[Rfam]
RNA sequence: CUCGCCCUUGCCCUCAUUGUACAUGCUGUGUGUAUAUCCGUGCCACCCACAGCGCAUGCAAUGUGGACAGGGCGGAG
Numbered sequence: 001c002u003c004g005c006c007c008u009u010g011c012c013c014u015c016a017u018u019g020u021a022c023a024u025g026c027u028g029u030g031u032g033u034a035u036a037u038c039c040g041u042g043c044c045a046c047c048c049a050c051a052g053c054g055c056a057u058g059c060a061a062u063g064u065g066g067a068c069a070g071g072g073c074g075g076a077g
Base pairs, nucleotide, nucleotide: 012066013065015063016062017061018060019059020058021057024054026052027051028050029049030048
Shown here is a 77-nucleotide sequence from Salvator merianae, a member of the family "mir-460 microRNA precursor family". A search with the family's covariance model found it, with a score of 63 bits. The family's consensus secondary structure was predicted with RNAalifold.